[Rfam]
RNA sequence: UGGGCUGUCGUUCAAUUGGCAGGACGGCGGAUUCUGGCUCCGUUAAUCAAGGUUCGAGUCCUUGCAGCCCAG
Numbered sequence: 001u002g003g004g005c006u007g008u009c010g011u012u013c014a015a016u017u018g019g020c021a022g023g024a025c026g027g028c029g030g031a032u033u034c035u036g037g038c039u040c041c042g043u044u045a046a047u048c049a050a051g052g053u054u055c056g057a058g059u060c061c062u063u064g065c066a067g068c069c070c071a072g
Base pairs, nucleotide, nucleotide: 001071002070003069004068005067006066007065010025011024012023013022027043028042029041030040031039048064049063050062051061052060

The family of this 72-nucleotide RNA from Desulfovibrio falkowii is "tRNA". The source organism's lineage runs through Bacteria, Pseudomonadati, Thermodesulfobacteriota, Desulfovibrionia and Desulfovibrio. Rfam's curators write: Transfer RNA (tRNA) molecules are approximately 80 nucleotides in length. The match comes from Rfam's covariance-model search (56 bits). The family's consensus secondary structure is taken from published work.